[Rfam]
Background
The family of this 87-nucleotide RNA sequence from Ipomoea nil is "Small nucleolar RNA snR60/Z15/Z230/Z193/J17". It scores 76 bits against the family's covariance model. NCBI's taxonomy places the organism under Eukaryota, Viridiplantae, Gunneridae, Convolvulaceae, Ipomoea. By type it is a C/D-box small nucleolar RNA.

RNA sequence: GGGAGUCAUAUGAUGAUUUUGUGCAUAGUUCAAAUGAUAAUCUUUGUGAUUAAAAAAAUUGUCUUUCGCUCCUAUCUGAUGACUCAA
Dot-bracket structure: ...(((((.......................................................................)))))...